[Rfam]
RNA: tRNA
RNA sequence: GGCUCCUUGGUCAAGCGGUCAAGACUCCACCCUCUCACGGUGGCAUCAGGAGUUCGAAUCUCCUAGGAGUCA
Numbered sequence: 001g002g003c004u005c006c007u008u009g010g011u012c013a014a015g016c017g018g019u020c021a022a023g024a025c026u027c028c029a030c031c032c033u034c035u036c037a038c039g040g041u042g043g044c045a046u047c048a049g050g051a052g053u054u055c056g057a058a059u060c061u062c063c064u065a066g067g068a069g070u071c072a
Base pairs, nucleotide, nucleotide: 001071002070003069004068005067006066007065010025011024012023027043028042029041030040031039048064049063050062051061052060